[Rfam]
RNA: Small nucleolar RNA SNORA25
Organism: Cavia porcellus
RNA sequence: AGGUCAUUUCAAAGAGGGCUUGUGGGAAUGUGAAACCAAGAGCUCUUAACACAGUGACCACAGAAUGAAGUUCUCCACAGUAUGUCAUAGUCACUCAGUAGUGCUAUGUUUUCCUGAGGAGAAAAACAU
Numbered sequence: 001a002g003g004u005c006a007u008u009u010c011a012a013a014g015a016g017g018g019c020u021u022g023u024g025g026g027a028a029u030g031u032g033a034a035a036c037c038a039a040g041a042g043c044u045c046u047u048a049a050c051a052c053a054g055u056g057a058c059c060a061c062a063g064a065a066u067g068a069a070g071u072u073c074u075c076c077a078c079a080g081u082a083u084g085u086c087a088u089a090g091u092c093a094c095u096c097a098g099u100a101g102u103g104c105u106a107u108g109u110u111u112u113c114c115u116g117a118g119g120a121g122a123a124a125a126a127c128a129u
Base pairs, nucleotide, nucleotide: 002059003058004057005056006055007054014047015046016045017044018043019042020041021040023039026037072122073121074120075119076118079115080114082112087107088106089105090104092103093102094101095100